The family of this 229-nucleotide part of an RNA from Spiroplasma eriocheiris is "Bacterial large subunit ribosomal RNA". It scores 2922 bits against the family's covariance model. The base pairs follow the family's consensus structure, which is taken from published work. Its Rfam clan is "LSU clan".
RNA sequence: GAGUUACGAUUGCAUGCAAGGUUAAGUGGAAGACACGGAGCCGUAGUGAAAGCGAGCCUUAAUAGGGCGUUUAGUAUGUAGUCGUAGACCCGAAACCAGGUGAUCUAGCCAUGAGCAGGUUGAAGUUAAGGUAACACUUGAUGGAGGACCGAACCAACGUUCGUUGAAAAGACCGUGGAUGACUUGUGGCUAGGGGUGAAAUUCCAAUCGAACCUGGAGAUAGCUGGUU
Numbered sequence: 001g002a003g004u005u006a007c008g009a010u011u012g013c014a015u016g017c018a019a020g021g022u023u024a025a026g027u028g029g030a031a032g033a034c035a036c037g038g039a040g041c042c043g044u045a046g047u048g049a050a051a052g053c054g055a056g057c058c059u060u061a062a063u064a065g066g067g068c069g070u071u072u073a074g075u076a077u078g079u080a081g082u083c084g085u086a087g088a089c090c091c092g093a094a095a096c097c098a099g100g101u102g103a104u105c106u107a108g109c110c111a112u113g114a115g116c117a118g119g120u121u122g123a124a125g126u127u128a129a130g131g132u133a134a135c136a137c138u139u140g141a142u143g144g145a146g147g148a149c150c151g152a153a154c155c156a157a158c159g160u161u162c163g164u165u166g167a168a169a170a171g172a173c174c175g176u177g178g179a180u181g182a183c184u185u186g187u188g189g190c191u192a193g194g195g196g197u198g199a200a201a202u203u204c205c206a207a208u209c210g211a212a213c214c215u216g217g218a219g220a221u222a223g224c225u226g227g228u229u
Stems, first nucleotide, its partner, number of pairs: 005086013020042004026036003046053002056068004089227002092224001096217006105193011116181001118150004125142006154178003158175002161172002195205002
Dot-bracket structure: ....(((((((((((((..((((..(((.....)))..))))...((....))..((((.....)))).....)))))))))))))..((.(...((((((...((((((((((((.((((...((((((......))))))....))))...(((.((.((........)).)))))..).))))))))))).((.......))......))))))......).))..